[Rfam]
RNA sequence: CGGGAACAACCGACGUUAGGGAAUUCGGCAAAUUAGUCCCGUAAGUUCGCGAUAAGGGAUGCCUGCCCUGGAAAGGGGCAGGCCGCAGUGACCUAGACGCUCCGACUGUCUAGUAACAACAUAGGUGACCGCAAAUCCGCAAGGACUCGUACGGUCACUGAAUCCUGCCCAGUGCGGGUAUCUGAACACCUAGUACAAUAGGACGAAGGACCCGUCAACGGCGGGGGUAACUAUGACCCUCUUAAGGUAGCGUAGUACCUUGCCGCUUCAGUAGCGGCUUGCAUGAAUGGAUCAACGAGAGCGUCACUGUCCCAACGUUGGGCCCGGUGAACUGUACGUUCCAGUGCGGAGUCUGGAGA
Number, nucleotide and partner (000 for none) at each position: 001c326002g325003g324004g323005a000006a000007c000008a000009a000010c321011c320012g319013a318014c317015g316016u315017u314018a000019g312020g311021g310022a000023a000024u000025u000026c000027g000028g000029c000030a000031a000032a000033u000034u000035a000036g060037u059038c058039c057040c056041g000042u000043a000044a000045g050046u000047u000048c000049g000050c045051g000052a000053u000054a000055a000056g040057g039058g038059a037060u036061g083062c082063c081064u080065g079066c078067c077068c076069u075070g000071g000072a000073a000074a000075g069076g068077g067078g066079c065080a064081g063082g062083c061084c088085g000086c000087a000088g084089u000090g000091a000092c000093c000094u000095a000096g305097a304098c303099g302100c301101u300102c299103c297104g296105a000106c000107u121108g120109u119110c000111u000112a000113g000114u000115a000116a000117c000118a000119a109120c108121a107122u000123a000124g159125g158126u157127g156128a155129c154130c153131g152132c149133a000134a000135a000136u145137c144138c143139g000140c000141a000142a000143g138144g137145a136146c000147u000148c000149g132150u000151a000152c131153g130154g129155u128156c127157a126158c125159u124160g000161a000162a292163u291164c290165c289166u000167g222168c221169c220170c000171a000172g219173u218174g215175c214176g213177g212178g211179u000180a000181u210182c209183u208184g000185a000186a000187c000188a000189c202190c201191u200192a199193g000194u000195a000196c000197a000198a000199u192200a191201g190202g189203a000204c000205g000206a000207a000208g183209g182210a181211c178212c177213c176214g175215u174216c000217a000218a173219c172220g169221g168222c167223g241224g240225g239226g238227g237228u236229a000230a000231c000232u000233a000234u000235g000236a228237c227238c226239c225240u224241c223242u246243u000244a000245a000246g242247g000248u000249a000250g000251c000252g000253u000254a000255g000256u000257a000258c000259c000260u000261u000262g278263c277264c276265g275266c274267u273268u000269c000270a000271g000272u000273a267274g266275c265276g264277g263278c262279u000280u000281g000282c000283a000284u000285g000286a000287a000288u000289g165290g164291a163292u162293c000294a000295a000296c104297g103298a000299g102300a101301g100302c099303g098304u097305c096306a000307c000308u000309g000310u021311c020312c019313c000314a017315a016316c015317g014318u013319u012320g011321g010322g000323c004324c003325c002326g001327g000328u000329g000330a000331a000332c000333u000334g000335u000336a000337c000338g000339u000340u357341c356342c355343a354344g353345u000346g000347c000348g000349g000350a000351g000352u000353c344354u343355g342356g341357a340358g000359a000

Rfam assigns this 359-nucleotide part of an RNA from Halocatena salina to the family "Archaeal large subunit ribosomal RNA".